This 55-nucleotide sequence from Paracoccus sigandri belongs to the Rfam family "terC RNA". The family's consensus secondary structure is taken from published work.
RNA sequence: CAGGCGGCCCGGGCCCCUCUGGCGACGUGACCCGUCGUGAUGUCGGACCGCAUCG
Numbered sequence: 001c002a003g004g005c006g007g008c009c010c011g012g013g014c015c016c017c018u019c020u021g022g023c024g025a026c027g028u029g030a031c032c033c034g035u036c037g038u039g040a041u042g043u044c045g046g047a048c049c050g051c052a053u054c055g
Base pairs, nucleotide, nucleotide: 006049007048009046010045011044012043022038023037024036025035026034027033